[Rfam]
RNA sequence: UCGAUCUCAUAAUAUAAGCCCUACCUCUCUUAUAUCAAUACGACUCCGCGGUCGCGCCAUUGUUUCGAAAUCGACUCGACAUC
Numbered sequence: 001u002c003g004a005u006c007u008c009a010u011a012a013u014a015u016a017a018g019c020c021c022u023a024c025c026u027c028u029c030u031u032a033u034a035u036c037a038a039u040a041c042g043a044c045u046c047c048g049c050g051g052u053c054g055c056g057c058c059a060u061u062g063u064u065u066c067g068a069a070a071u072c073g074a075c076u077c078g079a080c081a082u083c
Base pairs, nucleotide, nucleotide: 032063033062034061039056041054042053043052044051045050
Dot-bracket structure: ...............................(((....(.(((((....))))).)....)))....................
A member of the RNA family "BsrC" from Bacillus manliponensis, 83 nucleotides long. The family's RNA type in Rfam is small RNA. Lineage of the source: Bacteria > Bacillati > Bacillota > Bacillaceae > Bacillus. The match comes from Rfam's covariance-model search (44 bits).